[Rfam]
Small nucleolar RNA Z157/R69/R10: a 91-nucleotide RNA sequence from Corymbia citriodora. On this family, see Chen et al., Nucleic Acids Res 2003: "The high diversity of snoRNAs in plants: identification and comparative study of 120 snoRNA genes from Oryza sativa". The family's consensus secondary structure was predicted with PFOLD. Rfam 15.1 lists 836 matches to the family in 232 species.
RNA sequence: CUGAGUGCAGUGAUGAUGCAAUUGUAUGUGGACUAGAGUUUCUGAUACUACCCGUAGUUGAAGACUAACCCUUGGCUGUCUGAGCACUCUC
Numbered sequence: 001c002u003g004a005g006u007g008c009a010g011u012g013a014u015g016a017u018g019c020a021a022u023u024g025u026a027u028g029u030g031g032a033c034u035a036g037a038g039u040u041u042c043u044g045a046u047a048c049u050a051c052c053c054g055u056a057g058u059u060g061a062a063g064a065c066u067a068a069c070c071c072u073u074g075g076c077u078g079u080c081u082g083a084g085c086a087c088u089c090u091c
Stems, first nucleotide, its partner, number of pairs: 003089006039063004046056003